[Rfam]
RNA sequence: AUCCAAAAAACAAUGAGACCCUCUCCAAGCGCAUAUCUGAAGAUGAGUCCACGUAGAAGUUAACAUCUAAGUUUCCUGGAC
Numbered sequence: 001a002u003c004c005a006a007a008a009a010a011c012a013a014u015g016a017g018a019c020c021c022u023c024u025c026c027a028a029g030c031g032c033a034u035a036u037c038u039g040a041a042g043a044u045g046a047g048u049c050c051a052c053g054u055a056g057a058a059g060u061u062a063a064c065a066u067c068u069a070a071g072u073u074u075c076c077u078g079g080a081c
Stems, first nucleotide, its partner, number of pairs: 002080004008074004